RNA sequence: AUCCUUAUGCACGGGUUUUUCGCCUGUCAGUGAAGUUCCGACUGAGACGGUGAGUUGCUUUUACGCAAACUAUUCAAUACCCAUUCCUCGGCUGGCUGCCCCUCUGGGGCGGUAGGCUGAGGAAAUUUUUGUAUGCCCCCGAGGGC
Numbered sequence: 001a002u003c004c005u006u007a008u009g010c011a012c013g014g015g016u017u018u019u020u021c022g023c024c025u026g027u028c029a030g031u032g033a034a035g036u037u038c039c040g041a042c043u044g045a046g047a048c049g050g051u052g053a054g055u056u057g058c059u060u061u062u063a064c065g066c067a068a069a070c071u072a073u074u075c076a077a078u079a080c081c082c083a084u085u086c087c088u089c090g091g092c093u094g095g096c097u098g099c100c101c102c103u104c105u106g107g108g109g110c111g112g113u114a115g116g117c118u119g120a121g122g123a124a125a126u127u128u129u130u131g132u133a134u135g136c137c138c139c140c141g142a143g144g145g146c
Stems, first nucleotide, its partner, number of pairs: 020053005026048003034043003085123003089119005095113008135146004
The record is a 146-nucleotide RNA from Linderina pennispora, which matches "U4 spliceosomal RNA" in Rfam. A reference for the family is Zwieb (1997), "The uRNA database", Nucleic Acids Res. Taxonomically the source falls in Linderina (Eukaryota, Fungi, Kickxellomycota, Kickxellales).